[Rfam]
RNA: c-di-AMP riboswitch aptamer (ydaO/yuaA leader)
Organism: Arthrobacter globiformis
RNA sequence: ACCAACCGAAGACCCAUGUCCGGCAGAGACGGGGAAACCACUUUUCGGCCUGCUUGAAGCGGGCCUUGGGGUGAAGCCGCACAGUUCCUGACCACGUUCAGGACCGCGGCCGGGUGCCUCCCAUCCGAAUCCGACAGCUCACCUCGCAGGCAUCGGGAGAGGCUUC
Numbered sequence: 001a002c003c004a005a006c007c008g009a010a011g012a013c014c015c016a017u018g019u020c021c022g023g024c025a026g027a028g029a030c031g032g033g034g035a036a037a038c039c040a041c042u043u044u045u046c047g048g049c050c051u052g053c054u055u056g057a058a059g060c061g062g063g064c065c066u067u068g069g070g071g072u073g074a075a076g077c078c079g080c081a082c083a084g085u086u087c088c089u090g091a092c093c094a095c096g097u098u099c100a101g102g103a104c105c106g107c108g109g110c111c112g113g114g115u116g117c118c119u120c121c122c123a124u125c126c127g128a129a130u131c132c133g134a135c136a137g138c139u140c141a142c143c144u145c146g147c148a149g150g151c152a153u154c155g156g157g158a159g160a161g162g163c164u165u166c
Stems, first nucleotide, its partner, number of pairs: 006150002013026001030146005039068002069132003077109004112126004